[Rfam]
Description:
The family of this 93-nucleotide sequence from Bacillus sp. FJAT-18017 is "c-di-GMP-I-GGC riboswitch aptamer". Taxonomically the source falls in Bacillus (Bacteria, Bacillati, Bacilli, Bacillaceae).
RNA sequence: ACAGAAAAAGGCAAACCGCUUGAAAAGGUGGGACGCAAAGCUUCAGGUCUAAUGCGGGAGAAUUCCGGUGCGAUGACGGCUGAGCUGCCUGGA
Numbered sequence: 001a002c003a004g005a006a007a008a009a010g011g012c013a014a015a016c017c018g019c020u021u022g023a024a025a026a027g028g029u030g031g032g033a034c035g036c037a038a039a040g041c042u043u044c045a046g047g048u049c050u051a052a053u054g055c056g057g058g059a060g061a062a063u064u065c066c067g068g069u070g071c072g073a074u075g076a077c078g079g080c081u082g083a084g085c086u087g088c089c090u091g092g093a
Base pairs, nucleotide, nucleotide: 003090004089011036012035016031017030018029019028020027021026034079039086040085041084042083044082045081046080047077048076049075
Dot-bracket structure: ..((......((...((((((....))))))..[))..((((.((((((.........................))).])))))))..))...